This 287-nucleotide RNA from Bambusicola thoracicus belongs to the Rfam family "RNase MRP". The source organism's lineage runs through Eukaryota, Amniota, Sauropsida, Neognathae and Bambusicola. The family's consensus secondary structure is taken from published work. The match comes from Rfam's covariance-model search (131 bits). By type it is a ribozyme.

RNA sequence: GGAUGUUCUGAAGACCUGCUCUCUAGGCCACGCACGGAGGACGCUCGUUCCUCGAGGGCCGCGUGCCCGCCUAGGGGAAAGUCCCCGGACCGCGGGCAGAGAGUGCCGUGCGCCGCCGGCGCCCGCUCCGCCCCGCAGCCCACGCACGCCGCUGAGACGCUCCCGGGCCGAGCGGGUGAGCGCGGGGCGGGCAUUCGUCACGGCCACAGACACGCAGGUAGUGCGGAGGCGCGUCCCGCGAGCCGGGGCCGCAGCACCAACAGAACGGGGCUCACUCUCAGGCCAUC
Numbered sequence: 001g002g003a004u005g006u007u008c009u010g011a012a013g014a015c016c017u018g019c020u021c022u023c024u025a026g027g028c029c030a031c032g033c034a035c036g037g038a039g040g041a042c043g044c045u046c047g048u049u050c051c052u053c054g055a056g057g058g059c060c061g062c063g064u065g066c067c068c069g070c071c072u073a074g075g076g077g078a079a080a081g082u083c084c085c086c087g088g089a090c091c092g093c094g095g096g097c098a099g100a101g102a103g104u105g106c107c108g109u110g111c112g113c114c115g116c117c118g119g120c121g122c123c124c125g126c127u128c129c130g131c132c133c134c135g136c137a138g139c140c141c142a143c144g145c146a147c148g149c150c151g152c153u154g155a156g157a158c159g160c161u162c163c164c165g166g167g168c169c170g171a172g173c174g175g176g177u178g179a180g181c182g183c184g185g186g187g188c189g190g191g192c193a194u195u196c197g198u199c200a201c202g203g204c205c206a207c208a209g210a211c212a213c214g215c216a217g218g219u220a221g222u223g224c225g226g227a228g229g230c231g232c233g234u235c236c237c238g239c240g241a242g243c244c245g246g247g248g249c250c251g252c253a254g255c256a257c258c259a260a261c262a263g264a265a266c267g268g269g270g271c272u273c274a275c276u277c278u279c280a281g282g283c284c285a286u287c
Base pairs, nucleotide, nucleotide: 002287003286004285005284007282008281009280010279011278014219015218016217017216018215019214022075023074024073025072026071027070028069037053038052039051040050041049080272081271083270084269085268086267095107096106097105098104108124110122111121112120113119126191127190128189131187132186133185134184135183136182138181139180141178149175150174151173152172159168160167161166221257222256223255224254226252